[Rfam]
RNA: Ruegeria cis8 sRNA
RNA sequence: ACCGCCAGCACCUUGGCGAUGUAUGGGAUCAGGGGCAGGUUCAGGAUCAAAAGGAUGAGAUUGCCAAGAUACAUUGAAAUGAUAACUGCCCAGAAAAUCUGGGGUUCAUCAAUCAUCAGGCGCGGUCC
Numbered sequence: 001a002c003c004g005c006c007a008g009c010a011c012c013u014u015g016g017c018g019a020u021g022u023a024u025g026g027g028a029u030c031a032g033g034g035g036c037a038g039g040u041u042c043a044g045g046a047u048c049a050a051a052a053g054g055a056u057g058a059g060a061u062u063g064c065c066a067a068g069a070u071a072c073a074u075u076g077a078a079a080u081g082a083u084a085a086c087u088g089c090c091c092a093g094a095a096a097a098u099c100u101g102g103g104g105u106u107c108a109u110c111a112a113u114c115a116u117c118a119g120g121c122g123c124g125g126u127c128c
Base pairs, nucleotide, nucleotide: 003018004017005016006015007014008013026128027127029125030124034121036119038114039113040112043109045107046106048104052100053099054098056097061093062092063091067087068086073083074082075081